Source information: A member of the RNA family "c-di-AMP riboswitch aptamer (ydaO/yuaA leader)" from Sporomusa termitida, 140 nucleotides long. Taxonomically the source falls in Sporomusa (Bacteria, Bacillati, Bacillota, Selenomonadales).
[Rfam]
RNA sequence: ACUAUCGACAAGCCGAAUUUCCUUGUUGUUAUGAGGAAAAUGGGGAACCCAUUUUUUGGGGUGAAUCCGCGUUCUGCGGUAGGGAUUUCCCUUUAUCCCGAACCCGUCAGCUAACCUCGUAGGCUUUAGAAAGGGGUGUU
Numbered sequence: 001a002c003u004a005u006c007g008a009c010a011a012g013c014c015g016a017a018u019u020u021c022c023u024u025g026u027u028g029u030u031a032u033g034a035g036g037a038a039a040a041u042g043g044g045g046a047a048c049c050c051a052u053u054u055u056u057u058g059g060g061g062u063g064a065a066u067c068c069g070c071g072u073u074c075u076g077c078g079g080u081a082g083g084g085a086u087u088u089c090c091c092u093u094u095a096u097c098c099c100g101a102a103c104c105c106g107u108c109a110g111c112u113a114a115c116c117u118c119g120u121a122g123g124c125u126u127u128a129g130a131a132a133g134g135g136g137u138g139u140u
Stems, first nucleotide, its partner, number of pairs: 011125004018039009040120006050058002059105003067079004082099004